[Rfam]
HNH endonuclease-associated RNA and ORF (HEARO) RNA: a 227-nucleotide RNA from Niallia endozanthoxylica. The base pairs follow the family's consensus structure, which is taken from published work. The family's RNA type in Rfam is non-coding RNA gene. It scores 122 bits against the family's covariance model. The family has 139 seed sequences and 952 matches in Rfam 15.1.
RNA sequence: GUCAACUACCCACCACUUAUCAACCUUACGGUUUGAUUGAAGUGGGGGCUUGAAAAAGUCCUGGUUGUCUAGCCUAAGUUCUUUGAGAACUACGUUAUCCUUCAUGUAGAAACCUAUGGAUGAUUCCCUAGUCCGUAGCUCUUUCGUGGCUCUGUAAACAGCUCUAAGGGCAAGGAGCAGUCAACCACAUUGCGAAGGUUGGAUAACAUUGGCGAAGGGAAACAAAC
Numbered sequence: 001g002u003c004a005a006c007u008a009c010c011c012a013c014c015a016c017u018u019a020u021c022a023a024c025c026u027u028a029c030g031g032u033u034u035g036a037u038u039g040a041a042g043u044g045g046g047g048g049c050u051u052g053a054a055a056a057a058g059u060c061c062u063g064g065u066u067g068u069c070u071a072g073c074c075u076a077a078g079u080u081c082u083u084u085g086a087g088a089a090c091u092a093c094g095u096u097a098u099c100c101u102u103c104a105u106g107u108a109g110a111a112a113c114c115u116a117u118g119g120a121u122g123a124u125u126c127c128c129u130a131g132u133c134c135g136u137a138g139c140u141c142u143u144u145c146g147u148g149g150c151u152c153u154g155u156a157a158a159c160a161g162c163u164c165u166a167a168g169g170g171c172a173a174g175g176a177g178c179a180g181u182c183a184a185c186c187a188c189a190u191u192g193c194g195a196a197g198g199u200u201g202g203a204u205a206a207c208a209u210u211g212g213c214g215a216a217g218g219g220a221a222a223c224a225a226a227c
Base pairs, nucleotide, nucleotide: 001069003067004066005065006064007063008062010048011047013045014044016042017041049058050057051056072213073212074211076209077091078090079089080088081087094207095206096205097204098203099202100201103198110144111143114138115137116136117135118134119133120132121131122223124221125220126219127218128217129216146188147187148186149185153183154182158181159180161178162177163176164175165174